[Rfam]
RNA sequence: AUGAGCGUGAGCGCGUGUGGGAAGGAAGCCUGAGACAAAAGCUGGACUUGAUGCACAAAAACCUUGUAAGGCGGCACGCACCGGGUAAGCUGGCACCCAACAGCGAAGCCCAAACGGACUAAAGUAGCGUGACGUAAACAGGGCAAGGCUCAGCGGAAAGUUAUCGUU
Numbered sequence: 001a002u003g004a005g006c007g008u009g010a011g012c013g014c015g016u017g018u019g020g021g022a023a024g025g026a027a028g029c030c031u032g033a034g035a036c037a038a039a040a041g042c043u044g045g046a047c048u049u050g051a052u053g054c055a056c057a058a059a060a061a062c063c064u065u066g067u068a069a070g071g072c073g074g075c076a077c078g079c080a081c082c083g084g085g086u087a088a089g090c091u092g093g094c095a096c097c098c099a100a101c102a103g104c105g106a107a108g109c110c111c112a113a114a115c116g117g118a119c120u121a122a123a124g125u126a127g128c129g130u131g132a133c134g135u136a137a138a139c140a141g142g143g144c145a146a147g148g149c150u151c152a153g154c155g156g157a158a159a160g161u162u163a164u165c166g167u168u
Base pairs, nucleotide, nucleotide: 001016002015003014005012006011028168030166032164035161036160041154042153043152044151045150047147048146049145050144062143063142064141065140066139071135072134073133075131076130077129078128079127080125081124083111084110085109086108089104090103091102092101
RNA: Group II catalytic intron D1-D4-3